[Rfam]
RNA sequence: CUGGCAUCUGUGCUGGGGAGUAGCCCCCGGGGUGGGCUUCCGCUCCGCCCCUUACUGGGGCCUGCACACUUGCUCCGGGUACU
Numbered sequence: 001c002u003g004g005c006a007u008c009u010g011u012g013c014u015g016g017g018g019a020g021u022a023g024c025c026c027c028c029g030g031g032g033u034g035g036g037c038u039u040c041c042g043c044u045c046c047g048c049c050c051c052u053u054a055c056u057g058g059g060g061c062c063u064g065c066a067c068a069c070u071u072g073c074u075c076c077g078g079g080u081a082c083u
Stems, first nucleotide, its partner, number of pairs: 004080002007078002010075001012073002015070002018067001020065004025060006034051003038047001

This 83-nucleotide RNA sequence from Rousettus aegyptiacus belongs to the Rfam family "mir-1343 microRNA precursor family". Taxonomically the source falls in Rousettus (Eukaryota, Bilateria, Yinpterochiroptera, Pteropodidae).